The record is a 59-nucleotide RNA sequence from Actinomadura barringtoniae, which matches "L17-Actino-Proteobacteria ribosomal protein leader" in Rfam. The family's RNA type in Rfam is cis-regulatory leader. Taxonomically the source falls in Actinomadura (Bacteria, Bacillati, Actinomycetes, Thermomonosporaceae). It scores 43 bits against the family's covariance model. The base pairs follow the family's consensus structure, which is taken from published work.
RNA sequence: AUCCCUCCGGCCGGCGGGGCGGGUACGGCCGACGCCGGUACCUCGUACGGCCGGCGCGG
Numbered sequence: 001a002u003c004c005c006u007c008c009g010g011c012c013g014g015c016g017g018g019g020c021g022g023g024u025a026c027g028g029c030c031g032a033c034g035c036c037g038g039u040a041c042c043u044c045g046u047a048c049g050g051c052c053g054g055c056g057c058g059g
Stems, first nucleotide, its partner, number of pairs: 001024004005019004029059003033056007
Dot-bracket structure: ((((((((.......)))).))))....(((.(((((((..........))))))))))